The family of this 143-nucleotide RNA from Dioscorea zingiberensis is "Small nucleolar RNA snoR136". It is annotated as an H/ACA-box small nucleolar RNA. On this family, see Chen and Wu, Nucleic Acids Res 2009: "Mining small RNA sequencing data: a new approach to identify small nucleolar RNAs in Arabidopsis". Taxonomically the source falls in Dioscorea (Eukaryota, Viridiplantae, Mesangiospermae, Dioscoreales). The family has 8 seed sequences and 452 matches in Rfam 15.1. Pairs were carried over by alignment from the consensus structure, which was predicted with mfold.

RNA sequence: CUAGCUUCAUUGGUUUUUAGGCCACAGGCUAAGAUUUUUUAUUCUUUUGUCCUGACGGUCGUAUGAAGCAAUAUCAAAAUGAUCCCCUCGCUAUCCAUUGCAAAUCUUCUCCUUUUGCUCUUGGACGUUGGGGAGUUACAUGA
Numbered sequence: 001c002u003a004g005c006u007u008c009a010u011u012g013g014u015u016u017u018u019a020g021g022c023c024a025c026a027g028g029c030u031a032a033g034a035u036u037u038u039u040u041a042u043u044c045u046u047u048u049g050u051c052c053u054g055a056c057g058g059u060c061g062u063a064u065g066a067a068g069c070a071a072u073a074u075c076a077a078a079a080u081g082a083u084c085c086c087c088u089c090g091c092u093a094u095c096c097a098u099u100g101c102a103a104a105u106c107u108u109c110u111c112c113u114u115u116u117g118c119u120c121u122u123g124g125a126c127g128u129u130g131g132g133g134a135g136u137u138a139c140a141u142g143a
Base pairs, nucleotide, nucleotide: 002071004069005068008065009064010063013060016058017057025054026053027052028051030049031048032047033046034045081136083134084133085132086131087130089127090126094125095124096123097122103115104114